[Rfam]
RNA sequence: UUUAUGCGAUGAAGCGGAAGGUGGCCUUUCGAAGGGGAAUUUCCGUGGAGAAUGUCGGAUCUAAGAAUCAGGCGA
Numbered sequence: 001u002u003u004a005u006g007c008g009a010u011g012a013a014g015c016g017g018a019a020g021g022u023g024g025c026c027u028u029u030c031g032a033a034g035g036g037g038a039a040u041u042u043c044c045g046u047g048g049a050g051a052a053u054g055u056c057g058g059a060u061c062u063a064a065g066a067a068u069c070a071g072g073c074g075a
Base pairs, nucleotide, nucleotide: 014046015045016044019042020041021040025036026035027034028033055075056074060072061071062070
RNA: S10-Clostridia ribosomal protein leader